[Rfam]
RNA: Glycine riboswitch aptamer
RNA sequence: GGCAUCGCAGCGGGAGAGACUGGCGCCUCAAAACGCCAGCGCCGAAGGAGCAACCACCCCGGAAACUCUCAGGUACCCAGGACCGCUGCGGUAGG
Number, nucleotide and partner (000 for none) at each position: 001g000002g000003c000004a000005u000006c090007g089008c088009a087010g086011c085012g084013g083014g000015a000016g000017a000018g000019a000020c039021u038022g037023g036024c000025g000026c000027c000028u000029c000030a000031a000032a000033a000034c000035g000036c023037c022038a021039g020040c000041g074042c073043c072044g070045a069046a000047g000048g068049a067050g066051c000052a000053a000054c062055c061056a000057c000058c000059c000060c000061g055062g054063a000064a000065a000066c050067u049068c048069u045070c044071a000072g043073g042074u041075a000076c000077c000078c000079a000080g000081g000082a000083c013084c012085g011086c010087u009088g008089c007090g006091g000092u000093a000094g000095g000